[Rfam]
RNA sequence: CCGUGCAGCCGGGGGAGCAGCGGCCCCCUGAACCUGAAAUCCGCUAUAGCAGGGGUGAUGGUACGCCGAGGGCUUUUGGCUCAUAUUGCUGCCCUUUAUAAGUGGCGAUGAAGUUUGGGUCUUGCGCAACGGGUGUCUGUGAACCGUGUCAGGUUGGGAACAAAGCAGCACUAAACAGAAAUUCCCGUGUGCCGCAAGGGUGCCUGGCGGAGUUAACUGUAAAGGUAACGGAUAUGGGUUUCGGUUCGAAGCGUGCCGCACGG
Number, nucleotide and partner (000 for none) at each position: 001c263002c262003g261004u260005g259006c258007a000008g056009c055010c054011g029012g028013g027014g026015g025016a000017g000018c022019a000020g000021c000022g018023g000024c000025c015026c014027c013028c012029u011030g000031a000032a000033c053034c052035u051036g050037a000038a000039a000040u000041c000042c000043g000044c000045u000046a000047u000048a000049g000050c036051a035052g034053g033054g010055g009056u008057g000058a000059u000060g000061g256062u255063a254064c253065g252066c251067c000068g000069a000070g247071g246072g245073c244074u243075u000076u000077u000078g240079g239080c238081u237082c236083a235084u234085a233086u232087u000088g000089c000090u227091g226092c000093c000094c224095u223096u222097u221098a220099u219100a000101a000102g217103u216104g214105g213106c212107g000108a000109u000110g000111a000112a000113g208114u207115u000116u206117g205118g204119g203120u202121c198122u197123u196124g195125c194126g193127c189128a188129a000130c187131g186132g185133g184134u000135g000136u179137c178138u177139g176140u175141g000142a000143a000144c000145c000146g171147u170148g169149u168150c000151a000152g000153g000154u163155u162156g161157g000158g000159a000160a000161c156162a155163a154164a000165g000166c000167a000168g149169c148170a147171c146172u000173a000174a000175a140176c139177a138178g137179a136180a000181a000182u000183u000184c133185c132186c131187g130188u128189g127190u000191g000192c000193c126194g125195c124196a123197a122198g121199g000200g000201u000202g120203c119204c118205u117206g116207g114208c113209g000210g000211a000212g106213u105214u104215a000216a103217c102218u000219g099220u098221a097222a096223a095224g094225g000226u091227a090228a000229c000230g000231g000232a086233u085234a084235u083236g082237g081238g080239u079240u078241u000242c000243g074244g073245u072246u071247c070248g000249a000250a000251g066252c065253g064254u063255g062256c061257c000258g006259c005260a004261c003262g002263g001

Annotation
A member of the RNA family "Bacterial large signal recognition particle RNA" from Firmicutes bacterium AF36-19BH, 263 nucleotides long. The match comes from Rfam's covariance-model search (170 bits). Its Rfam clan is "SRP clan". The source organism's lineage runs through Bacteria, Bacillati and Bacillota.